[Rfam]
RNA sequence: GGCAGGAGUAGAAGCAGUCAAGCGCCCUCAGGGAUUUCUUCGGGCGCCGGGUCAUUGCUCCUUUU
Numbered sequence: 001g002g003c004a005g006g007a008g009u010a011g012a013a014g015c016a017g018u019c020a021a022g023c024g025c026c027c028u029c030a031g032g033g034a035u036u037u038c039u040u041c042g043g044g045c046g047c048c049g050g051g052u053c054a055u056u057g058c059u060c061c062u063u064u065u
Base pairs, nucleotide, nucleotide: 005061006060007059008058009057010056015050019051022047023046024045025044026043027042
The record is a 65-nucleotide RNA from Paenirhizobium daejeonense, which matches "Xanthine riboswitch aptamer (NMT1 RNA)" in Rfam. Gene Ontology term of the family: purine nucleobase binding. The organism belongs to Paenirhizobium, within Bacteria.